[Rfam]
Background
Proteobacterial sRNA sX8: a 77-nucleotide RNA sequence. The base pairs follow the family's consensus structure, which was predicted with CMfinder. Rfam classes the family as a small RNA. A reference for the family is Schmidtke et al. (2011), "Genome-wide transcriptome analysis of the plant pathogen Xanthomonas identifies sRNAs with putative virulence functions", Nucleic Acids Res. It is one of the family's seed sequences.
RNA sequence: CUGAUCACCACAGUGAAGAAAGUGAUUGGGAAACAGAGACUUAGCGCUCUAGUGCAUGACUCGUUUCCCGCUCCAGA
Numbered sequence: 001c002u003g004a005u006c007a008c009c010a011c012a013g014u015g016a017a018g019a020a021a022g023u024g025a026u027u028g029g030g031a032a033a034c035a036g037a038g039a040c041u042u043a044g045c046g047c048u049c050u051a052g053u054g055c056a057u058g059a060c061u062c063g064u065u066u067c068c069c070g071c072u073c074c075a076g077a
Base pairs, nucleotide, nucleotide: 001013002012003011024073025072027070028069029068030067031066032065033064034063038060040058045054046053047052